[Rfam]
The family of this 109-nucleotide RNA from Dokdonella fugitiva is "Xanthomonadaceae sRNA sX13". Lineage of the source: Bacteria > Pseudomonadati > Pseudomonadota > Gammaproteobacteria > Dokdonella.
RNA sequence: AACGGCACCCUGGUUGACUCACCUCCCUGAGUGCAACCCGCGAAGACCGAUCCCUCCCCAGAUCGGCUUCCCCGCCCCGAGGGCUCCCCCUGGCCCUCGGGGCAUUUCU
Numbered sequence: 001a002a003c004g005g006c007a008c009c010c011u012g013g014u015u016g017a018c019u020c021a022c023c024u025c026c027c028u029g030a031g032u033g034c035a036a037c038c039c040g041c042g043a044a045g046a047c048c049g050a051u052c053c054c055u056c057c058c059c060a061g062a063u064c065g066g067c068u069u070c071c072c073c074g075c076c077c078c079g080a081g082g083g084c085u086c087c088c089c090c091u092g093g094c095c096c097u098c099g100g101g102g103c104a105u106u107u108c109u
Base pairs, nucleotide, nucleotide: 004010005009012038013037014036015035016034017032018031019030020029042070043069044068045067047066048065049064050063051062052061074103075102076101077100078099079098080097082095083094084093
The family's consensus secondary structure was predicted with CMfinder.